[Rfam]
RNA sequence: UCAUCCUUUAACCAGGUCCAGAGAGGCUCGAAAGGGUAAUCCGCGCAGCAUGUGUAUACAGGACAUCUGUAUACGUAAGCACAAACUGCGCAGAAAGCACCCCGGGAGAGCUCGGGGUGCUUUUUUUAC
Number, nucleotide and partner (000 for none) at each position: 001u000002c000003a037004u036005c035006c034007u033008u032009u031010a000011a000012c000013c030014a000015g028016g027017u026018c025019c000020a000021g000022a000023g000024a000025g018026g017027c016028u015029c000030g013031a009032a008033a007034g006035g005036g004037u003038a000039a000040u000041c000042c000043g000044c000045g000046c000047a000048g080049c079050a000051u077052g076053u075054g074055u073056a072057u071058a070059c069060a068061g067062g000063a000064c000065a000066u000067c061068u060069g059070u058071a057072u056073a055074c054075g053076u052077a051078a000079g049080c048081a000082c000083a000084a000085a000086c000087u000088g000089c000090g000091c000092a000093g124094a123095a122096a121097g120098c119099a118100c117101c116102c115103c114104g113105g112106g111107a000108g000109a000110g000111c106112u105113c104114g103115g102116g101117g100118u099119g098120c097121u096122u095123u094124u093125u000126u000127u000128a000129c000

Shown here is a 129-nucleotide RNA from Alteribacter lacisalsi, a member of the family "PyrR binding site". A reference for the family is Bonner et al. (2001), "Molecular recognition of pyr mRNA by the Bacillus subtilis attenuation regulatory protein PyrR", Nucleic Acids Res. The match comes from Rfam's covariance-model search (58 bits). Pairs were carried over by alignment from the consensus structure, which is taken from published work.